[Rfam]
RNA sequence: CUCGCCCGGAAAGACAGAUGCCGCACGGCUACGGCUAUGCGGCCAGUGCACGGGCAAAAGGAGCGUUACCCCUUCCUCGCAGCAAACGGGGAAAAGAUUAACUGGGUCCGGCCUCAAGUAGCGAAUGCGAAAGCGGUCGGACUUU
Numbered sequence: 001c002u003c004g005c006c007c008g009g010a011a012a013g014a015c016a017g018a019u020g021c022c023g024c025a026c027g028g029c030u031a032c033g034g035c036u037a038u039g040c041g042g043c044c045a046g047u048g049c050a051c052g053g054g055c056a057a058a059a060g061g062a063g064c065g066u067u068a069c070c071c072c073u074u075c076c077u078c079g080c081a082g083c084a085a086a087c088g089g090g091g092a093a094a095a096g097a098u099u100a101a102c103u104g105g106g107u108c109c110g111g112c113c114u115c116a117a118g119u120a121g122c123g124a125a126u127g128c129g130a131a132a133g134c135g136g137u138c139g140g141a142c143u144u145u
Stems, first nucleotide, its partner, number of pairs: 004055005013049001020043006027036002075091004104144010115133001121128002
Dot-bracket structure: ...(((((....(......((((((.((......)).)))))).....).)))))...................((((.........))))............((((((((((.(.....((....))....).)))))))))).

This 145-nucleotide RNA sequence from Cloacibacillus evryensis belongs to the Rfam family "RT-14 RNA". By type it is a small RNA. A search with the family's covariance model found it, with a score of 62 bits.